[Rfam]
RNA sequence: GCGGGGACGGCCCCGCCAUCAGCGCCAUUCGGGACGGCCCG
Numbered sequence: 001g002c003g004g005g006g007a008c009g010g011c012c013c014c015g016c017c018a019u020c021a022g023c024g025c026c027a028u029u030c031g032g033g034a035c036g037g038c039c040c041g
Stems, first nucleotide, its partner, number of pairs: 001016006030041004
Annotation
The family of this 41-nucleotide RNA from Pusillimonas noertemannii is "Guanidine-II riboswitch aptamer (mini-ykkC)". A search with the family's covariance model found it, with a score of 34 bits. Rfam describes the family as follows. Simpler in structure and has fewer highly conserved nucleotide positions than the ykkC-yxkD leader. NCBI's taxonomy places the organism under Bacteria, Pseudomonadati, Pseudomonadota, Betaproteobacteria, Pusillimonas. Rfam 15.1 lists 1,589 matches to the family in 1,229 species.